[Rfam]
RNA sequence: GGAAAUCUUCGGGGCAGGGUGAAAUUCCCUACCGGCGGUAUAGUCCGCGACCCGCUUCGGCGGCUGAAUUGGUGUAAUUCCAAUACCGACAGUACAGUCUGGAUGAGAGAAGAUGGAA
Numbered sequence: 001g002g003a004a005a006u007c008u009u010c011g012g013g014g015c016a017g018g019g020u021g022a023a024a025u026u027c028c029c030u031a032c033c034g035g036c037g038g039u040a041u042a043g044u045c046c047g048c049g050a051c052c053c054g055c056u057u058c059g060g061c062g063g064c065u066g067a068a069u070u071g072g073u074g075u076a077a078u079u080c081c082a083a084u085a086c087c088g089a090c091a092g093u094a095c096a097g098u099c100u101g102g103a104u105g106a107g108a109g110a111a112g113a114u115g116g117a118a
Stems, first nucleotide, its partner, number of pairs: 005114006017029003031098002033088002035048004043086002052063002068084005090101003
Notes:
The record is a 118-nucleotide RNA from Marvinbryantia formatexigens, which matches "FMN riboswitch aptamer (RFN element)" in Rfam. The RFN element is a highly conserved domain that is found frequently in the 5'-untranslated regions of prokaryotic mRNAs that encode for flavin mononucleotide (FMN) biosynthesis and transport proteins. The family's consensus secondary structure is taken from published work.